Rfam assigns this 82-nucleotide RNA from [Clostridium] aminophilum to the family "tRNA". The family is grouped with related families in Rfam's "tRNA clan". By type it is a transfer RNA. The base pairs follow the family's consensus structure, which is taken from published work.
[Rfam]
RNA sequence: GGGUAGGUCGCAUAGUGGCAAUUGCAGCGGACUGUAAAUCCGCCGACUUCGGUCUACGUCAGUUCGAGUCUGACUCUGCCCA
Numbered sequence: 001g002g003g004u005a006g007g008u009c010g011c012a013u014a015g016u017g018g019c020a021a022u023u024g025c026a027g028c029g030g031a032c033u034g035u036a037a038a039u040c041c042g043c044c045g046a047c048u049u050c051g052g053u054c055u056a057c058g059u060c061a062g063u064u065c066g067a068g069u070c071u072g073a074c075u076c077u078g079c080c081c082a
Stems, first nucleotide, its partner, number of pairs: 001081007010025003027043005058074005